[Rfam]
RNA sequence: AAACCCGCGUCGGGAGAGACUCAGGACUGGCCAGAGUGACCAGCGAUGAGCGCCGAAGGAGCAACCGCCCCCGGAAACUCUCAGGCAAAAGGACCGAUGCGGGGAA
Dot-bracket structure: .....((((((((......((((.......................)))).(((((..(((...(.......)....))))).))).......)))))))).....

This 106-nucleotide sequence from Dongia mobilis belongs to the Rfam family "Glycine riboswitch aptamer".
Gene Ontology term of the family: glycine biosynthetic process.